[Rfam]
RNA sequence: CAAGUCCCACAUGAGCAAAGCUUAGCCCGCAGCUCAUUAGUGAAAUCCACAGGCAAAACCGGUAACGGAGGUCUGAAGCUGGAUGGAACAAGAUUGCAGGCUCUGUACUGAGCCCCGAAAAAUGUAUAGUUGUGGUCCAUAGGGAUAAACCCUGCAAUUGCAGGGGGAAAGCCGACGCAUUCCAGCGUGACGGAAGGCAGCAGACUUACGGGUGCUAUGGCAAGCCUGAAAGUCACCACCGGGGUCUUCGACCA
Numbered sequence: 001c002a003a004g005u006c007c008c009a010c011a012u013g014a015g016c017a018a019a020g021c022u023u024a025g026c027c028c029g030c031a032g033c034u035c036a037u038u039a040g041u042g043a044a045a046u047c048c049a050c051a052g053g054c055a056a057a058a059c060c061g062g063u064a065a066c067g068g069a070g071g072u073c074u075g076a077a078g079c080u081g082g083a084u085g086g087a088a089c090a091a092g093a094u095u096g097c098a099g100g101c102u103c104u105g106u107a108c109u110g111a112g113c114c115c116c117g118a119a120a121a122a123u124g125u126a127u128a129g130u131u132g133u134g135g136u137c138c139a140u141a142g143g144g145a146u147a148a149a150c151c152c153u154g155c156a157a158u159u160g161c162a163g164g165g166g167g168a169a170a171g172c173c174g175a176c177g178c179a180u181u182c183c184a185g186c187g188u189g190a191c192g193g194a195a196g197g198c199a200g201c202a203g204a205c206u207u208a209c210g211g212g213u214g215c216u217a218u219g220g221c222a223a224g225c226c227u228g229a230a231a232g233u234c235a236c237c238a239c240c241g242g243g244g245u246c247u248u249c250g251a252c253c254a
Stems, first nucleotide, its partner, number of pairs: 012036005020030002023223001025221002038091001040089002045084003050075005059068003110246001112245006132239005171198003176192002203234005209228005
Description:
Group II catalytic intron D1-D4-6: a 254-nucleotide RNA from Desulfobacter latus. The pairing is the family consensus, mapped onto this sequence. From the family's description: Group II introns are found in rRNA, tRNA and mRNA of organelles in fungi, plants and protists, and also in mRNA in bacteria. Taxonomically the source falls in Desulfobacter (Bacteria, Pseudomonadati, Desulfobacteria, Desulfobacterales).